Rfam assigns this 85-nucleotide RNA sequence from Heyndrickxia sporothermodurans to the family "c-di-GMP-I riboswitch aptamer". The family's consensus secondary structure is taken from published work. The source organism's lineage runs through Bacteria, Bacillota, Caryophanales, Bacillaceae and Heyndrickxia. A search with the family's covariance model found it, with a score of 82 bits.
RNA sequence: UUAUGAUAAUGGCAAACUUAUUGAAAGAUAAGGACGCAAAGCUACGGAUCUAAGGCUUAUAAGCUAGGACCGCCGGGUUACCAAG
Dot-bracket structure: ...........((...((((((....))))))...))..((((.(((.((....(((....)))...))...)))))))......